[Rfam]
RNA: Small nucleolar RNA ZL63
Organism: Aotus nancymaae
RNA sequence: AGCUGAAGAGUUGAUGUUCCCCUAAGGCCAUAGCUCUUAAACU
Number, nucleotide and partner (000 for none) at each position: 001a043002g042003c000004u040005g000006a038007a037008g036009a035010g034011u033012u032013g000014a000015u000016g000017u000018u000019c000020c000021c000022c000023u000024a000025a000026g000027g000028c000029c000030a000031u000032a012033g011034c010035u009036c008037u007038u006039a000040a004041a000042c002043u001